[Rfam]
RNA sequence: UGCGUCUAUUAGCUUAGUUUCCGGCUAUGCCGGAGAGCGGGGGAACCAAUCAAUUGGGGCGAAUCGAUCCGAUCGGAUCGUAGGGGACCAUCUAACCCGAGCCCGUCAGCUAACCUCGUCAGCUUAGGAUGGGUCAAUCA
Numbered sequence: 001u002g003c004g005u006c007u008a009u010u011a012g013c014u015u016a017g018u019u020u021c022c023g024g025c026u027a028u029g030c031c032g033g034a035g036a037g038c039g040g041g042g043g044a045a046c047c048a049a050u051c052a053a054u055u056g057g058g059g060c061g062a063a064u065c066g067a068u069c070c071g072a073u074c075g076g077a078u079c080g081u082a083g084g085g086g087a088c089c090a091u092c093u094a095a096c097c098c099g100a101g102c103c104c105g106u107c108a109g110c111u112a113a114c115c116u117c118g119u120c121a122g123c124u125u126a127g128g129a130u131g132g133g134u135c136a137a138u139c140a
Stems, first nucleotide, its partner, number of pairs: 011124004018036008037119006047056002057104003065080004083098003
Rfam assigns this 140-nucleotide RNA sequence from Cohnella thailandensis to the family "c-di-AMP riboswitch aptamer (ydaO/yuaA leader)". It scores 83 bits against the family's covariance model.